[Rfam]
RNA sequence: UUGCCUUAAACUAAUGAGUAAGGAAAACAAAGCGAGCGGUGGGAGCCGCUUGCCGCGCCCAAUCUUUGGUGCGCAAGAAUUUAUGGAGGGGUUAUAGGCUGGCCGAGCGUUGACGCUGCCUACUUGUGCAGAACUCGCUCGAGCGGGCCUCCC
Numbered sequence: 001u002u003g004c005c006u007u008a009a010a011c012u013a014a015u016g017a018g019u020a021a022g023g024a025a026a027a028c029a030a031a032g033c034g035a036g037c038g039g040u041g042g043g044a045g046c047c048g049c050u051u052g053c054c055g056c057g058c059c060c061a062a063u064c065u066u067u068g069g070u071g072c073g074c075a076a077g078a079a080u081u082u083a084u085g086g087a088g089g090g091g092u093u094a095u096a097g098g099c100u101g102g103c104c105g106a107g108c109g110u111u112g113a114c115g116c117u118g119c120c121u122a123c124u125u126g127u128g129c130a131g132a133a134c135u136c137g138c139u140c141g142a143g144c145g146g147g148c149c150u151c152c153c
Base pairs, nucleotide, nucleotide: 004023005022006021007020008019032053033052034051035050036049037048038047039046054073055072056071057070058069090153091152096150097149098148099147100146102144104141105140107138108137109136116131117130118129119128